[Rfam]
RNA sequence: GACCGGCGACCGCCGAAUCCCGGAUGUCAUCGAACCCGGGAACCGGGGACCCACGUCUCUCUGGGGUGAAUCCGGACCAUCCGGUAGGGCUACUCCUGGCCCGAACCCGUCAGCUAACCCGGUAGGCGGCCAAGGAGAGGAGAG
Numbered sequence: 001g002a003c004c005g006g007c008g009a010c011c012g013c014c015g016a017a018u019c020c021c022g023g024a025u026g027u028c029a030u031c032g033a034a035c036c037c038g039g040g041a042a043c044c045g046g047g048g049a050c051c052c053a054c055g056u057c058u059c060u061c062u063g064g065g066g067u068g069a070a071u072c073c074g075g076a077c078c079a080u081c082c083g084g085u086a087g088g089g090c091u092a093c094u095c096c097u098g099g100c101c102c103g104a105a106c107c108c109g110u111c112a113g114c115u116a117a118c119c120c121g122g123u124a125g126g127c128g129g130c131c132a133a134g135g136a137g138a139g140g141a142g143a144g
Stems, first nucleotide, its partner, number of pairs: 011128004018041006042123006052063002064108003072084004087102004
RNA: c-di-AMP riboswitch aptamer (ydaO/yuaA leader)